Record summary: A member of the RNA family "let-7 microRNA precursor family" from Gadus morhua, 88 nucleotides long. Taxonomically the source falls in Gadus (Eukaryota, Craniata, Teleostomi, Zeiogadaria). Rfam's curators write: This family represents the microRNAs (miRNA) let-7 and mir-98. let-7 was identified from a study of developmental timing in C. elegans, and was later shown to be part of a much larger class of non-coding RNAs termed miRNAs. The family has 64 seed sequences and 8,694 matches in Rfam 15.1. Gene Ontology terms of the family: miRNA-mediated post-transcriptional gene silencing and RISC complex. A search with the family's covariance model found it, with a score of 75 bits.
[Rfam]
RNA sequence: ACGGGCUGAGGUAGUAGGUUGUGUGGUUUCAGGCGAGUGAUUUUUGCCGCCAUCAGGAGAUAACUAUACAACCUACUGCCUUCCCUGA
Numbered sequence: 001a002c003g004g005g006c007u008g009a010g011g012u013a014g015u016a017g018g019u020u021g022u023g024u025g026g027u028u029u030c031a032g033g034c035g036a037g038u039g040a041u042u043u044u045u046g047c048c049g050c051c052a053u054c055a056g057g058a059g060a061u062a063a064c065u066a067u068a069c070a071a072c073c074u075a076c077u078g079c080c081u082u083c084c085c086u087g088a
Stems, first nucleotide, its partner, number of pairs: 002087004008082020032048004053058001